[Rfam]
RNA sequence: AAGGGUGUGAGGAGUAAGUUGAAAAUCAAAAAACGCCUAGGGUGGAAACACGGUAACACUCCUGGGCGUUUUUUGCU
Numbered sequence: 001a002a003g004g005g006u007g008u009g010a011g012g013a014g015u016a017a018g019u020u021g022a023a024a025a026u027c028a029a030a031a032a033a034c035g036c037c038u039a040g041g042g043u044g045g046a047a048a049c050a051c052g053g054u055a056a057c058a059c060u061c062c063u064g065g066g067c068g069u070u071u072u073u074u075g076c077u
Stems, first nucleotide, its partner, number of pairs: 027075005034068002039063003042059003
RNA: Cyano-1 RNA